[Rfam]
The record is a 110-nucleotide RNA sequence from Leersia perrieri, which matches "Small nucleolar RNA Z168/Z174" in Rfam. Rfam 15.1 lists 65 matches to the family in 15 species. The match comes from Rfam's covariance-model search (36 bits). By type it is a C/D-box small nucleolar RNA. For this family Rfam cites "The high diversity of snoRNAs in plants: identification and comparative study of 120 snoRNA genes from Oryza sativa" (Chen et al., Nucleic Acids Res, 2003).

RNA sequence: AGGCCGAUGAUGCUAAACAUGCACCUACGGUCUAGACCUUUUUUUUUUUGCGUGGAACCUACGGUCUAGACCUGUAGGGAUGAUAUCCUAUCCUAAGACAGCUAUGGCCC
Numbered sequence: 001a002g003g004c005c006g007a008u009g010a011u012g013c014u015a016a017a018c019a020u021g022c023a024c025c026u027a028c029g030g031u032c033u034a035g036a037c038c039u040u041u042u043u044u045u046u047u048u049u050g051c052g053u054g055g056a057a058c059c060u061a062c063g064g065u066c067u068a069g070a071c072c073u074g075u076a077g078g079g080a081u082g083a084u085a086u087c088c089u090a091u092c093c094u095a096a097g098a099c100a101g102c103u104a105u106g107g108c109c110c
Stems, first nucleotide, its partner, number of pairs: 002109004